RNA sequence: CCGCCGGCUUGGCUAAGGCCUUCCGGGGCGACCAUGAAAGUGUGGUCAGCCGUGCCCUGCCUCCUUCGGGAAACACACAACUGGGUUCGUGAAACAGGGCGUAGUGAGGCUGCGGCCAAUAUCGAGACCUGCGCGCGGC
Numbered sequence: 001c002c003g004c005c006g007g008c009u010u011g012g013c014u015a016a017g018g019c020c021u022u023c024c025g026g027g028g029c030g031a032c033c034a035u036g037a038a039a040g041u042g043u044g045g046u047c048a049g050c051c052g053u054g055c056c057c058u059g060c061c062u063c064c065u066u067c068g069g070g071a072a073a074c075a076c077a078c079a080a081c082u083g084g085g086u087u088c089g090u091g092a093a094a095c096a097g098g099g100c101g102u103a104g105u106g107a108g109g110c111u112g113c114g115g116c117c118a119a120u121a122u123c124g125a126g127a128c129c130u131g132c133g134c135g136c137g138g139c
Base pairs, nucleotide, nucleotide: 001028002027004026005025006024007023012019013018062071063070064069085139087138088137089136090135091134095131096130097129098128104123105121
RNA: Bacteriophage Diversity-Generating Retroelement RNA